[Rfam]
Nucleotides: 078
Stems, first nucleotide, its partner, number of pairs: 005025006048070006
Number, partner (000 for none) and nucleotide at each position: 001000u002000g003000c004000a005025u006024g007023g008022g009021g010020u011000u012000u013000g014000c015000g016000a017000a018000u019000u020010g021009c022008c023007c024006c025005a026000c027000g028000a029000g030000g031000c032000g033000u034000c035000a036000u037000g038000c039000c040000a041000u042000c043000a044000c045000u046000u047000c048070g049069c050068g051067u052066c053065c054000a055000a056000u057000c058000c059000c060000g061000a062000a063000a064000a065053g066052g067051a068050c069049g070048u071000a072000a073000a074000u075000c076000a077000u078000g
Rfam assigns this 78-nucleotide RNA from Rhizobium giardinii to the family "chrB-a RNA". Pairs were carried over by alignment from the consensus structure, which is taken from published work. NCBI's taxonomy places the organism under Bacteria, Pseudomonadati, Pseudomonadota, Hyphomicrobiales, Rhizobium.